[Rfam]
RNA: glmS glucosamine-6-phosphate activated ribozyme aptamer
Organism: Fusibacter sp. A1
RNA sequence: AUUUCAUUUCAAGCGCCAGAUCCACUGGUUAUGAGUUAUUUGUCAGAUAGUGAUGAUAGAUAAUAUGUACAGUGGGGGACGAGGACAGGGUUUAUCGAAAGUUCGGCGGGUACCCUGCGGCAACUCAGUGCCGUUAACGACAGGUCAAAACCUGUGAGCAAUCACAGAGACAAUACCUAGGUUAGCUGAGACA
Numbered sequence: 001a002u003u004u005c006a007u008u009u010c011a012a013g014c015g016c017c018a019g020a021u022c023c024a025c026u027g028g029u030u031a032u033g034a035g036u037u038a039u040u041u042g043u044c045a046g047a048u049a050g051u052g053a054u055g056a057u058a059g060a061u062a063a064u065a066u067g068u069a070c071a072g073u074g075g076g077g078g079a080c081g082a083g084g085a086c087a088g089g090g091u092u093u094a095u096c097g098a099a100a101g102u103u104c105g106g107c108g109g110g111u112a113c114c115c116u117g118c119g120g121c122a123a124c125u126c127a128g129u130g131c132c133g134u135u136a137a138c139g140a141c142a143g144g145u146c147a148a149a150a151c152c153u154g155u156g157a158g159c160a161a162u163c164a165c166a167g168a169g170a171c172a173a174u175a176c177c178u179a180g181g182u183u184a185g186c187u188g189a190g191a192c193a
Stems, first nucleotide, its partner, number of pairs: 021076007086117005095106004118133005139183003142178002152167006